glycine-GGAnGA riboswitch aptamer: a 182-nucleotide RNA sequence. It is one of the family's seed sequences. The literature on the family includes a 2017 paper in Proc Natl Acad Sci U S A by Weinberg et al., "Bioinformatic analysis of riboswitch structures uncovers variant classes with altered ligand specificity". Clan: Glycine riboswitch clan. From the family's description: glycine-GGAnGA riboswitch is a variant of glycine riboswitch that have in common a U69A change. This riboswitch is associate with genes that encode either saccharopine dehydrogenase or amino acid transporters and other genes with not predicted function.

[Rfam]
RNA sequence: ACGAAUGAAGCCAACCCGAGAAUCUAUUGAAAAAGUAUAGUACCGAAGAAGCAAAAUUAGAGGGAAGUCUACCUCUAAUAGAAACUGACAGGUAGGAGUAAGGUUGGUGGACGAAACUUUGGAGAGAAUGUAAUUAAUACAUCACCAACGAGGAUACAACCAACAGGUAGAAGGACAGAGGA
Numbered sequence: 001a002c003g004a005a006u007g008a009a010g011c012c013a014a015c016c017c018g019a020g021a022a023u024c025u026a027u028u029g030a031a032a033a034a035g036u037a038u039a040g041u042a043c044c045g046a047a048g049a050a051g052c053a054a055a056a057u058u059a060g061a062g063g064g065a066a067g068u069c070u071a072c073c074u075c076u077a078a079u080a081g082a083a084a085c086u087g088a089c090a091g092g093u094a095g096g097a098g099u100a101a102g103g104u105u106g107g108u109g110g111a112c113g114a115a116a117c118u119u120u121g122g123a124g125a126g127a128a129u130g131u132a133a134u135u136a137a138u139a140c141a142u143c144a145c146c147a148a149c150g151a152g153g154a155u156a157c158a159a160c161c162a163a164c165a166g167g168u169a170g171a172a173g174g175a176c177a178g179a180g181g182a
Stems, first nucleotide, its partner, number of pairs: 002113002010108007022041001024040004042093003048089001050086002056079008117180005126143001128142004144168003150164001152161002